The record is a 265-nucleotide sequence from Urocynchramus pylzowi, which matches "RNase MRP" in Rfam. NCBI's taxonomy places the organism under Eukaryota, Tetrapoda, Dinosauria, Aves, Urocynchramus. The family is grouped with related families in Rfam's "RNaseP clan". It scores 143 bits against the family's covariance model. The family's RNA type in Rfam is ribozyme. Rfam describes the family as follows. RNase MRP is an enzymatically active ribonucleoprotein with two distinct roles in eukaryotes.
RNA sequence: GGAUGUUCUGAAGACCUGCUCUCUAGGCCACGCACGGAGGACUGCCGUUCCUCAUGGGCCCCGCGCCCGCCUAGGGGAAAGUCCCCGGACCGCCGGCAGAGAGUGCCGGGCGCUGCCGCGCCCCCGCCCGCCGCCGCCUCGCACCCUCCCGCCGAGACGCCUGCGGGCCGAGCGGAUGAGCGCGGGGCGGGCUCUCGUCACGGCCACAGACACGCAGGUAGCGCGGCAGGCGCGCCAACAGAACGGGGCUCACUCUCAGGCCAUC
Numbered sequence: 001g002g003a004u005g006u007u008c009u010g011a012a013g014a015c016c017u018g019c020u021c022u023c024u025a026g027g028c029c030a031c032g033c034a035c036g037g038a039g040g041a042c043u044g045c046c047g048u049u050c051c052u053c054a055u056g057g058g059c060c061c062c063g064c065g066c067c068c069g070c071c072u073a074g075g076g077g078a079a080a081g082u083c084c085c086c087g088g089a090c091c092g093c094c095g096g097c098a099g100a101g102a103g104u105g106c107c108g109g110g111c112g113c114u115g116c117c118g119c120g121c122c123c124c125c126g127c128c129c130g131c132c133g134c135c136g137c138c139u140c141g142c143a144c145c146c147u148c149c150c151g152c153c154g155a156g157a158c159g160c161c162u163g164c165g166g167g168c169c170g171a172g173c174g175g176a177u178g179a180g181c182g183c184g185g186g187g188c189g190g191g192c193u194c195u196c197g198u199c200a201c202g203g204c205c206a207c208a209g210a211c212a213c214g215c216a217g218g219u220a221g222c223g224c225g226g227c228a229g230g231c232g233c234g235c236c237a238a239c240a241g242a243a244c245g246g247g248g249c250u251c252a253c254u255c256u257c258a259g260g261c262c263a264u265c
Base pairs, nucleotide, nucleotide: 002265003264004263005262007260008259009258010257011256014219015218016217017216018215019214022075023074024073025072026071027070028069037053038052039051040050041049043047080250081249083248084247085246086245095107096106097105098104108123109122110121111120112119113118131190132189137186138185139184146180147179148178149175150174151173152172159168160167161166221235222234223233224232225231